Source information
Rfam assigns this 583-nucleotide part of an RNA from Saccharomyces paradoxus to the family "Saccharomyces telomerase". Taxonomically the source falls in Saccharomyces (Eukaryota, Fungi, Saccharomycetes, Saccharomycetales). By type it is a non-coding RNA gene.

RNA sequence: AGAUUUGGUAGAUGCUUAAUGAUGUAAAGGUUGCGUUGAAUUUUGAAUUGUUCUCUCAAGUUAGCAGGCAGGUGCACUUUUCUCUUUUACGAAGGACUUCGAGUGCACUGGGGUCAGCAUAGAUACUUGUGUGUAUAUAUAUUUGUGGUUUUUGUUAUUUUUCUACUUAUAGAUGGCUAAAAUCUGAGUUUGAAAGAUGGCCACCAUAAAUUCUUAAAAGUGGUAUCGCAUUUAGCCCCCCUUCGUACCAAUUCUGUUUUCGUCUCAAGCUCUUCAUUACUACAGCGCAAGUCUACCAUUACCACACCCACACACAGAUAUCACGGCUAAUGUUUAUUAGUUAAGUUUCCAUGAGCUCACUCUUUAUUCUUUUCCUCGUUUUCUUAUACCUAGUAUGUUUUCUGACGCUUUUUGAAGUGACAGAAAAAAGGAGUUUAAAUUAGAUUUGCAAACGGACGGUACUAAAUACCGUCACUUUUACGUCUAACUUAUCGUUAACUCUGCAAAAAGAAAACAAGAAAAAGAAAAUCAGUGAAUAGGAGUAUAUAUAGAAAUGGUUUAUUCUAUUUUUUUUUCGUUUUUC
Numbered sequence: 001a002g003a004u005u006u007g008g009u010a011g012a013u014g015c016u017u018a019a020u021g022a023u024g025u026a027a028a029g030g031u032u033g034c035g036u037u038g039a040a041u042u043u044u045g046a047a048u049u050g051u052u053c054u055c056u057c058a059a060g061u062u063a064g065c066a067g068g069c070a071g072g073u074g075c076a077c078u079u080u081u082c083u084c085u086u087u088u089a090c091g092a093a094g095g096a097c098u099u100c101g102a103g104u105g106c107a108c109u110g111g112g113g114u115c116a117g118c119a120u121a122g123a124u125a126c127u128u129g130u131g132u133g134u135a136u137a138u139a140u141a142u143u144u145g146u147g148g149u150u151u152u153u154g155u156u157a158u159u160u161u162u163c164u165a166c167u168u169a170u171a172g173a174u175g176g177c178u179a180a181a182a183u184c185u186g187a188g189u190u191u192g193a194a195a196g197a198u199g200g201c202c203a204c205c206a207u208a209a210a211u212u213c214u215u216a217a218a219a220g221u222g223g224u225a226u227c228g229c230a231u232u233u234a235g236c237c238c239c240c241c242u243u244c245g246u247a248c249c250a251a252u253u254c255u256g257u258u259u260u261c262g263u264c265u266c267a268a269g270c271u272c273u274u275c276a277u278u279a280c281u282a283c284a285g286c287g288c289a290a291g292u293c294u295a296c297c298a299u300u301a302c303c304a305c306a307c308c309c310a311c312a313c314a315c316a317g318a319u320a321u322c323a324c325g326g327c328u329a330a331u332g333u334u335u336a337u338u339a340g341u342u343a344a345g346u347u348u349c350c351a352u353g354a355g356c357u358c359a360c361u362c363u364u365u366a367u368u369c370u371u372u373u374c375c376u377c378g379u380u381u382u383c384u385u386a387u388a389c390c391u392a393g394u395a396u397g398u399u400u401u402c403u404g405a406c407g408c409u410u411u412u413u414g415a416a417g418u419g420a421c422a423g424a425a426a427a428a429a430g431g432a433g434u435u436u437a438a439a440u441u442a443g444a445u446u447u448g449c450a451a452a453c454g455g456a457c458g459g460u461a462c463u464a465a466a467u468a469c470c471g472u473c474a475c476u477u478u479u480a481c482g483u484c485u486a487a488c489u490u491a492u493c494g495u496u497a498a499c500u501c502u503g504c505a506a507a508a509a510g511a512a513a514a515c516a517a518g519a520a521a522a523a524g525a526a527a528a529u530c531a532g533u534g535a536a537u538a539g540g541a542g543u544a545u546a547u548a549u550a551g552a553a554a555u556g557g558u559u560u561a562u563u564c565u566a567u568u569u570u571u572u573u574u575u576c577g578u579u580u581u582u583c
Stems, first nucleotide, its partner, number of pairs: 006298008067115003144208006154201002157198002160195004165189004171185004326341006398427007406419004430502006438489001440487006455473004460468002550582008